[Rfam]
RNA sequence: CAAGCAUGCACGCUGCUCUUUUCCGUUUCUUUUUUUACUUUAGCACCUGAAAUUCGGGGGCUUUUGCGCAUAAGAAAAGAAACGAAAAAUCGCGCCGAAAGCCUCCCUCGUGGAGGCUUUUUUAUU
Numbered sequence: 001c002a003a004g005c006a007u008g009c010a011c012g013c014u015g016c017u018c019u020u021u022u023c024c025g026u027u028u029c030u031u032u033u034u035u036u037a038c039u040u041u042a043g044c045a046c047c048u049g050a051a052a053u054u055c056g057g058g059g060g061c062u063u064u065u066g067c068g069c070a071u072a073a074g075a076a077a078a079g080a081a082a083c084g085a086a087a088a089a090u091c092g093c094g095c096c097g098a099a100a101g102c103c104u105c106c107c108u109c110g111u112g113g114a115g116g117c118u119u120u121u122u123u124a125u126u
Base pairs, nucleotide, nucleotide: 015093016092020088021087022086024084025083026082027081028080029079030078031077032076033075035073036072037071057067059065060064098120099119100118101117102116103115104114105113106112
The record is a 126-nucleotide RNA from Paramixta manurensis, which matches "Phenylalanine leader peptide" in Rfam. Gene Ontology term of the family: cellular amino acid metabolic process. The source organism's lineage runs through Bacteria, Pseudomonadati, Gammaproteobacteria, Enterobacterales and Paramixta. The match comes from Rfam's covariance-model search (65 bits). Rfam classes the family as a cis-regulatory leader. A reference for the family is Gurvich et al. (2010), "Two groups of phenylalanine biosynthetic operon leader peptides genes: a high level of apparently incidental frameshifting in decoding Escherichia coli pheL", Nucleic Acids Res.